Record summary:
Rfam assigns this 130-nucleotide sequence from Microcaecilia unicolor to the family "Small nucleolar RNA SNORA31". A search with the family's covariance model found it, with a score of 84 bits. The family's consensus secondary structure was predicted with RNAalifold. From the family's description: ACA31 (SNORA31) belongs to the H/ACA class of snoRNAs which are thought to guide the sites of modification of uridines to pseudouridines. ACA31 is predicted to guide the pseudouridylation of U3713 in 28S rRNA and U218 in 18S rRNA. This family includes the mouse homologue snoMBI-161. Rfam classes the family as an H/ACA-box small nucleolar RNA.
[Rfam]
RNA sequence: AAGCACCUACUGAUAGACCUGGAGCAAUUUACUGUUGCUUUUGAGUUUGCACAAAGAUGCAAGAAUACAAUUCCAUUUGCUUUCUGCCUGUCUACUUGUGACAGCUCAGAUUGAAUAGGGGAAUACACAA
Numbered sequence: 001a002a003g004c005a006c007c008u009a010c011u012g013a014u015a016g017a018c019c020u021g022g023a024g025c026a027a028u029u030u031a032c033u034g035u036u037g038c039u040u041u042u043g044a045g046u047u048u049g050c051a052c053a054a055a056g057a058u059g060c061a062a063g064a065a066u067a068c069a070a071u072u073c074c075a076u077u078u079g080c081u082u083u084c085u086g087c088c089u090g091u092c093u094a095c096u097u098g099u100g101a102c103a104g105c106u107c108a109g110a111u112u113g114a115a116u117a118g119g120g121g122a123a124u125a126c127a128c129a130a
Base pairs, nucleotide, nucleotide: 003060004059005058007056008055011051012050014049015048016047017046018045022040023039024038025037026036027035028034072122073121074120076118077117080113083110084109085108086107088104089103090102091101092100